[Rfam]
This 92-nucleotide RNA from Prevotella sp. CAG:891 belongs to the Rfam family "Group II catalytic intron D1-D4-1". A reference for the family is Chu et al. (2001), "Control of branch-site choice by a group II intron", EMBO J. The base pairs follow the family's consensus structure. Taxonomically the source falls in Prevotella (Bacteria, Bacteroidia, Bacteroidales, Prevotellaceae).

RNA sequence: AGUUUUUUUACGAAAGAAGUGGAGUAAAGCUUGUCGUGAGAAGUCAGCAGACGCCAUAGUAGUGCAACCGUCGAUAAUGUUGCACGAAGGGC
Numbered sequence: 001a002g003u004u005u006u007u008u009u010a011c012g013a014a015a016g017a018a019g020u021g022g023a024g025u026a027a028a029g030c031u032u033g034u035c036g037u038g039a040g041a042a043g044u045c046a047g048c049a050g051a052c053g054c055c056a057u058a059g060u061a062g063u064g065c066a067a068c069c070g071u072c073g074a075u076a077a078u079g080u081u082g083c084a085c086g087a088a089g090g091g092c
Base pairs, nucleotide, nucleotide: 001031002030006026008024009023011021043052044051045050053092054091055090062085063084064083065082066081067080
Rfam's curators write: Group II introns are found in rRNA, tRNA and mRNA of organelles in fungi, plants and protists, and also in mRNA in bacteria.